[Rfam]
RNA: Small nucleolar RNA SNORD53/SNORD92
Organism: Bagarius yarrelli
RNA sequence: CUAACAUGAUGAGGCCAGAGAAUGGUUUCGCUAACUUGACUGAGGUGAUGUGAUGUACUUCUCUUGGCUGUCUGAUUGG
Numbered sequence: 001c002u003a004a005c006a007u008g009a010u011g012a013g014g015c016c017a018g019a020g021a022a023u024g025g026u027u028u029c030g031c032u033a034a035c036u037u038g039a040c041u042g043a044g045g046u047g048a049u050g051u052g053a054u055g056u057a058c059u060u061c062u063c064u065u066g067g068c069u070g071u072c073u074g075a076u077u078g079g
Base pairs, nucleotide, nucleotide: 001079002078003077004076